[Rfam]
RNA: Ribosomal protein L10 leader
RNA sequence: AUAAAAGAAUAUGAUGUACCGUAGACAGCAGGGGCAAAUAUCCGCUUAAUCAUCCUGCCGAGGUGUUUAUAGAUAAAUUGGAUAUUUAUGUUUUUCCAAUGAAUUGGUAAGCUCUCAUGUCUGCGUGAGAGCUUUUUAUUUACACUU
Numbered sequence: 001a002u003a004a005a006a007g008a009a010u011a012u013g014a015u016g017u018a019c020c021g022u023a024g025a026c027a028g029c030a031g032g033g034g035c036a037a038a039u040a041u042c043c044g045c046u047u048a049a050u051c052a053u054c055c056u057g058c059c060g061a062g063g064u065g066u067u068u069a070u071a072g073a074u075a076a077a078u079u080g081g082a083u084a085u086u087u088a089u090g091u092u093u094u095u096c097c098a099a100u101g102a103a104u105u106g107g108u109a110a111g112c113u114c115u116c117a118u119g120u121c122u123g124c125g126u127g128a129g130a131g132c133u134u135u136u137u138a139u140u141u142a143c144a145c146u147u
Base pairs, nucleotide, nucleotide: 028058029057030056031055032054033053034045035044111132112131113130114129115128116127117126118125119124
Dot-bracket structure: ...........................((((((((........)).......))))))....................................................(((((((((....)))))))))...............